[Rfam]
RNA sequence: CCUUCGCUGAUGAUUCACUAUUUGACUUUCGUUCUCCUGAGCUUGCUGAAGCAACGCUUUUUUUCCAUCUGCGGAGG
Dot-bracket structure: (((.(((...............................................................))).)))
Numbered sequence: 001c002c003u004u005c006g007c008u009g010a011u012g013a014u015u016c017a018c019u020a021u022u023u024g025a026c027u028u029u030c031g032u033u034c035u036c037c038u039g040a041g042c043u044u045g046c047u048g049a050a051g052c053a054a055c056g057c058u059u060u061u062u063u064u065c066c067a068u069c070u071g072c073g074g075a076g077g
Stems, first nucleotide, its partner, number of pairs: 001077003005073003
Source information: Rfam assigns this 77-nucleotide sequence from Onychorhynchus coronatus to the family "Small nucleolar RNA SNORD59". Taxonomically the source falls in Onychorhynchus (Eukaryota, Sauria, Australaves, Passeriformes). Gene Ontology terms of the family: nucleolus and RNA processing. Rfam classes the family as a C/D-box small nucleolar RNA. The match comes from Rfam's covariance-model search (67 bits).